[Rfam]
RNA: SAH (S-adenosyl-L-homocysteine) riboswitch aptamer
Organism: Pseudoduganella armeniaca
RNA sequence: UUCUCCGAGGAGCGUUGCGACGGACCCCCAGCGGUCUGCCAGGCUCGGACACUUCUGCAACCGCGCUCACGUCAA
Numbered sequence: 001u002u003c004u005c006c007g008a009g010g011a012g013c014g015u016u017g018c019g020a021c022g023g024a025c026c027c028c029c030a031g032c033g034g035u036c037u038g039c040c041a042g043g044c045u046c047g048g049a050c051a052c053u054u055c056u057g058c059a060a061c062c063g064c065g066c067u068c069a070c071g072u073c074a075a
Stems, first nucleotide, its partner, number of pairs: 002051001004049005021038006